The family of this 77-nucleotide RNA from Aurantimonas sp. 22II-16-19i is "chrB-a RNA". It is annotated as a cis-regulatory element. The organism belongs to Aurantimonas, within Bacteria. The family's consensus secondary structure is taken from published work.
[Rfam]
RNA sequence: UGCAUAGAGAUCGCGAUCUCUUCACGAGGCCCCGGCCGAAGCAUCGCCUCCAAUGAUCCACUCGUGGAAGCUCGGUG
Number, nucleotide and partner (000 for none) at each position: 001u000002g000003c000004a000005u024006a000007g022008a021009g020010a019011u000012c000013g000014c000015g000016a000017u000018c000019u010020c009021u008022u007023c000024a005025c000026g000027a000028g000029g000030c000031c000032c000033c000034g000035g000036c000037c000038g000039a000040a000041g000042c000043a000044u000045c000046g071047c070048c000049u068050c067051c066052a000053a000054u000055g000056a000057u000058c000059c000060a000061c000062u000063c000064g000065u000066g051067g050068a049069a000070g047071c046072u000073c000074g000075g000076u000077g000